[Rfam]
RNA sequence: GCUGUCGAUACGGCGUUUAGGUGCAACCACACGAACAGAAAGGGCUUUACUGCCCCUAUCUGUUAAGCUUACGCAUUUGCACUUGGGAAAGUCUGUGAAAAGCGACUAACCAUUGAAUCCCUAGCGGGGACGUUGGCUAACAUGUCUGCCAGCGAGAAUGGUUUGCAAUAACGGAUUACCAUCAACGUUUUUUCCCCUUUGCUUGCCCUCUGGGCAGGGAAAGGUUGAAACGGGUCCCACCGCGGAAGGGUAUCUGAAGUCCAAUACGCCGUGCAUCCUGUCUGUCUGCCCAGGCAGCAGGAUGGAACUCAAUACAGAUUAUUCCUUCAGC
Numbered sequence: 001g002c003u004g005u006c007g008a009u010a011c012g013g014c015g016u017u018u019a020g021g022u023g024c025a026a027c028c029a030c031a032c033g034a035a036c037a038g039a040a041a042g043g044g045c046u047u048u049a050c051u052g053c054c055c056c057u058a059u060c061u062g063u064u065a066a067g068c069u070u071a072c073g074c075a076u077u078u079g080c081a082c083u084u085g086g087g088a089a090a091g092u093c094u095g096u097g098a099a100a101a102g103c104g105a106c107u108a109a110c111c112a113u114u115g116a117a118u119c120c121c122u123a124g125c126g127g128g129g130a131c132g133u134u135g136g137c138u139a140a141c142a143u144g145u146c147u148g149c150c151a152g153c154g155a156g157a158a159u160g161g162u163u164u165g166c167a168a169u170a171a172c173g174g175a176u177u178a179c180c181a182u183c184a185a186c187g188u189u190u191u192u193u194c195c196c197c198u199u200u201g202c203u204u205g206c207c208c209u210c211u212g213g214g215c216a217g218g219g220a221a222a223g224g225u226u227g228a229a230a231c232g233g234g235u236c237c238c239a240c241c242g243c244g245g246a247a248g249g250g251u252a253u254c255u256g257a258a259g260u261c262c263a264a265u266a267c268g269c270c271g272u273g274c275a276u277c278c279u280g281u282c283u284g285u286c287u288g289c290c291c292a293g294g295c296a297g298c299a300g301g302a303u304g305g306a307a308c309u310c311a312a313u314a315c316a317g318a319u320u321a322u323u324c325c326u327u328c329a330g331c
Base pairs, nucleotide, nucleotide: 001331002330003329004328007325012269019084020083021082022081023080034064035063036062037061038060039059093317094316095315096314097313102243103242104241118130119129120128121127132153133152134151135150136149137148173237174236175235176234177233191224192223193222274304275303276302277301278300279299280298281297

Rfam assigns this 331-nucleotide sequence from Actinomortierella ambigua to the family "Nuclear RNase P". It scores 52 bits against the family's covariance model. The family's RNA type in Rfam is ribozyme. Taxonomically the source falls in Actinomortierella (Eukaryota, Fungi, Mortierellomycota, Mortierellomycotina). Its family is annotated with tRNA processing, ribonuclease P complex and ribonuclease P activity in the Gene Ontology. About the family: Ribonuclease P (RNase P) is a ubiquitous endoribonuclease, found in archaea, bacteria and eukarya as well as chloroplasts and mitochondria. Its best characterised activity is the generation of mature 5'-ends of tRNAs by cleaving the 5'-leader elements of precursor-tRNAs. Cellular RNase Ps are ribonucleoproteins.